[Rfam]
RNA sequence: AAGGCCGAACCGCCGAGUCCCCGGGCCGCAACCAGCGCCCCGAGGAGCCGGGGACCCACUUCCGGAGUGUUCGGGGGAGCACCCUCGGCCCGUAAGGGGUGAAUCCGCAGCCACGUGGAUCUAUCCGCGUGUGCGCGCGGACGGGCUGCUCCGGCCCUAACCCGUCAGCUAACUCGGUAGGCGGACGAGGAGAGGAGAU
Numbered sequence: 001a002a003g004g005c006c007g008a009a010c011c012g013c014c015g016a017g018u019c020c021c022c023g024g025g026c027c028g029c030a031a032c033c034a035g036c037g038c039c040c041c042g043a044g045g046a047g048c049c050g051g052g053g054a055c056c057c058a059c060u061u062c063c064g065g066a067g068u069g070u071u072c073g074g075g076g077g078a079g080c081a082c083c084c085u086c087g088g089c090c091c092g093u094a095a096g097g098g099g100u101g102a103a104u105c106c107g108c109a110g111c112c113a114c115g116u117g118g119a120u121c122u123a124u125c126c127g128c129g130u131g132u133g134c135g136c137g138c139g140g141a142c143g144g145g146c147u148g149c150u151c152c153g154g155c156c157c158u159a160a161c162c163c164g165u166c167a168g169c170u171a172a173c174u175c176g177g178u179a180g181g182c183g184g185a186c187g188a189g190g191a192g193a194g195g196a197g198a199u
Stems, first nucleotide, its partner, number of pairs: 011183004018046003047178006057096001097163003105140004143157004
Background
Rfam assigns this 199-nucleotide sequence from Actinomadura chibensis to the family "c-di-AMP riboswitch aptamer (ydaO/yuaA leader)". The base pairs follow the family's consensus structure.